[Rfam]
This 125-nucleotide RNA from Brassica napus belongs to the Rfam family "MIR9563 microRNA precursor family".
Gene Ontology terms of the family: miRNA-mediated post-transcriptional gene silencing and RISC complex.
Pairs were carried over by alignment from the consensus structure, which was predicted with RNAalifold.
The family has 2 seed sequences and 5,832 matches in Rfam 15.1.
RNA sequence: GGAAUAUUAGAAUCCGUCUCUUAAUUUUUAACUAAAAUUGUUAAGAAUCGGUUCUUAAAUAAGAGUUUUAAGAGCCGGUUCUUAACUUUUUUAAUUAAAAGUUAAGAGACGGGUUCUUAUAUUCC
Numbered sequence: 001g002g003a004a005u006a007u008u009a010g011a012a013u014c015c016g017u018c019u020c021u022u023a024a025u026u027u028u029u030a031a032c033u034a035a036a037a038u039u040g041u042u043a044a045g046a047a048u049c050g051g052u053u054c055u056u057a058a059a060u061a062a063g064a065g066u067u068u069u070a071a072g073a074g075c076c077g078g079u080u081c082u083u084a085a086c087u088u089u090u091u092u093a094a095u096u097a098a099a100a101g102u103u104a105a106g107a108g109a110c111g112g113g114u115u116c117u118u119a120u121a122u123u124c125c
Base pairs, nucleotide, nucleotide: 001125002124003123004122005121006120007119009117010116011115012114013113014112015111016110017109018108019107020106021105022104023103024102025101026100027099028098029097030096031095033093034092035091036090037089041085042084043083044082045081046080047079